U2 spliceosomal RNA: a 190-nucleotide sequence from Caenorhabditis auriculariae. About the family: U2 is a small nuclear RNA (snRNA) component of the spliceosome (involved in pre-mRNA splicing). Complementary binding between U2 snRNA (in an area lying towards the 5' end but 3' to hairpin I) and the branchpoint sequence (BPS) of the intron results the bulging out of an unpaired adenosine, on the BPS, which initiates a nucleophilic attack at the intronic 5' splice site, thus starting the first of two transesterification reactions that mediate splicing. The family's consensus secondary structure is taken from published work.
[Rfam]
RNA sequence: AUCGCUUCUCGGCCUUUUGGCUAAGAUCAGUUUGUAGUUACCGUUCUUAUCGUAUUAACCUACGAUAUGAGCUCAUCGAGCUCUGCAUAGGUUAUUCCAUUUUUGGAGCCAAGGAAGGAUUCUGGAGCUUGCUCCGGCCUUCCGAGGGUCGUUCCGGCGUUGCACCGCUGUCGGACUCGGCCCAGACCUC
Numbered sequence: 001a002u003c004g005c006u007u008c009u010c011g012g013c014c015u016u017u018u019g020g021c022u023a024a025g026a027u028c029a030g031u032u033u034g035u036a037g038u039u040a041c042c043g044u045u046c047u048u049a050u051c052g053u054a055u056u057a058a059c060c061u062a063c064g065a066u067a068u069g070a071g072c073u074c075a076u077c078g079a080g081c082u083c084u085g086c087a088u089a090g091g092u093u094a095u096u097c098c099a100u101u102u103u104u105g106g107a108g109c110c111a112a113g114g115a116a117g118g119a120u121u122c123u124g125g126a127g128c129u130u131g132c133u134c135c136g137g138c139c140u141u142c143c144g145a146g147g148g149u150c151g152u153u154c155c156g157g158c159g160u161u162g163c164a165c166c167g168c169u170g171u172c173g174g175a176c177u178c179g180g181c182c183c184a185g186a187c188c189u190c
Stems, first nucleotide, its partner, number of pairs: 007026003011022004048067006069083006113143006124135004146183006153175006